mir-1905 microRNA precursor family: a 73-nucleotide RNA sequence from Coregonus sp. 'balchen'. The match comes from Rfam's covariance-model search (83 bits). The organism belongs to Coregonus, within Eukaryota.
RNA sequence: GCGUCUGCUGUUGGAUGCGCUUGAUGGUCGACCCCUUCGGCCCGACCACCAGUCCCACCACGCGGUAGGGUAC
Numbered sequence: 001g002c003g004u005c006u007g008c009u010g011u012u013g014g015a016u017g018c019g020c021u022u023g024a025u026g027g028u029c030g031a032c033c034c035c036u037u038c039g040g041c042c043c044g045a046c047c048a049c050c051a052g053u054c055c056c057a058c059c060a061c062g063c064g065g066u067a068g069g070g071u072a073c
Stems, first nucleotide, its partner, number of pairs: 004069008012060003017055001019053003023049001025048004030043001033040002